Record summary:
A member of the RNA family "ffh sRNA" from Gellertiella hungarica, 52 nucleotides long. Rfam classes the family as a small RNA. For this family Rfam cites "Identification of candidate structured RNAs in the marine organism 'Candidatus Pelagibacter ubique'" (Meyer et al., BMC Genomics, 2009).
RNA sequence: GAUCCCGGAGGUCAACAUCCGACAGCGCGUUGCGCCCUCGGGUGUUAUUCGG
Numbered sequence: 001g002a003u004c005c006c007g008g009a010g011g012u013c014a015a016c017a018u019c020c021g022a023c024a025g026c027g028c029g030u031u032g033c034g035c036c037c038u039c040g041g042g043u044g045u046u047a048u049u050c051g052g
Base pairs, nucleotide, nucleotide: 016044017043018042019041020040021039022038025035026034027033028032